[Rfam]
RNA sequence: AGCAAUAACUAGGGGAGUCCAAUAGUUUGGGCUGAGAGAGAGACGCGUUUAAGUUUCUUGACCCUUUGGACCUGAUCUGGAUCAUACCAGCGUGGGGAAGUUAAUAACAAUCUAU
Numbered sequence: 001a002g003c004a005a006u007a008a009c010u011a012g013g014g015g016a017g018u019c020c021a022a023u024a025g026u027u028u029g030g031g032c033u034g035a036g037a038g039a040g041a042g043a044c045g046c047g048u049u050u051a052a053g054u055u056u057c058u059u060g061a062c063c064c065u066u067u068g069g070a071c072c073u074g075a076u077c078u079g080g081a082u083c084a085u086a087c088c089a090g091c092g093u094g095g096g097g098a099a100g101u102u103a104a105u106a107a108c109a110a111u112c113u114a115u
Stems, first nucleotide, its partner, number of pairs: 006103005011065004016059001017032005039058005071096004077090004
The record is a 115-nucleotide RNA from Bacillus sp. Y1, which matches "TPP riboswitch aptamer (THI element)" in Rfam. Taxonomically the source falls in Bacillus (Bacteria, Bacillati, Bacillota, Caryophanales). It scores 80 bits against the family's covariance model. Vitamin B(1) in its active form thiamin pyrophosphate (TPP) is an essential coenzyme that is synthesised by coupling of pyrimidine and thiazole moieties in bacteria.